RNA sequence: GGAAUGGGAAUCCCAAAAUUCCCUGGGGAUGGAUCCCGGAAUUCCCUGGGAGUGGGAUCCCAGAAUUCCCUGGGAGUGGGAUCCCGGAAUUCCCCGGGAAGGGAUCUCAGGAGAAUUCCUUGGGAAAGGAUUUCAAGAUUCCCAGGAAAAGGAUCCCGGGAGAAUUCCCGGGGAAUGGGAUCCCAAGAAAAUUCCUUGGGGAAAGAAUUCCGGAAUUCCCUGGGAAUGGGAUCCUGGAAUUCCCAGGGGAUAAUUCCCAGGGGAUAAUUCCCAGGGGAUAAUAAUUCCCACCAUUCUCCUUUUCC
Numbered sequence: 001g002g003a004a005u006g007g008g009a010a011u012c013c014c015a016a017a018a019u020u021c022c023c024u025g026g027g028g029a030u031g032g033a034u035c036c037c038g039g040a041a042u043u044c045c046c047u048g049g050g051a052g053u054g055g056g057a058u059c060c061c062a063g064a065a066u067u068c069c070c071u072g073g074g075a076g077u078g079g080g081a082u083c084c085c086g087g088a089a090u091u092c093c094c095c096g097g098g099a100a101g102g103g104a105u106c107u108c109a110g111g112a113g114a115a116u117u118c119c120u121u122g123g124g125a126a127a128g129g130a131u132u133u134c135a136a137g138a139u140u141c142c143c144a145g146g147a148a149a150a151g152g153a154u155c156c157c158g159g160g161a162g163a164a165u166u167c168c169c170g171g172g173g174a175a176u177g178g179g180a181u182c183c184c185a186a187g188a189a190a191a192u193u194c195c196u197u198g199g200g201g202a203a204a205g206a207a208u209u210c211c212g213g214a215a216u217u218c219c220c221u222g223g224g225a226a227u228g229g230g231a232u233c234c235u236g237g238a239a240u241u242c243c244c245a246g247g248g249g250a251u252a253a254u255u256c257c258c259a260g261g262g263g264a265u266a267a268u269u270c271c272c273a274g275g276g277g278a279u280a281a282u283a284a285u286u287c288c289c290a291c292c293a294u295u296c297u298c299c300u301u302u303u304c305c
Stems, first nucleotide, its partner, number of pairs: 001305004007299003012263003024072005031060005036054001073288004093103003117130005134236002137233003140228001151219003264282002267279004
Rfam assigns this 305-nucleotide sequence from Cyanistes caeruleus to the family "Nuclear RNase P". For this family Rfam cites "The Ribonuclease P Database" (Brown, Nucleic Acids Res, 1999). Rfam links the family to the GO terms tRNA processing, ribonuclease P complex and ribonuclease P activity. Lineage of the source: Eukaryota > Metazoa > Deuterostomia > Theropoda > Cyanistes. A search with the family's covariance model found it, with a score of 29 bits.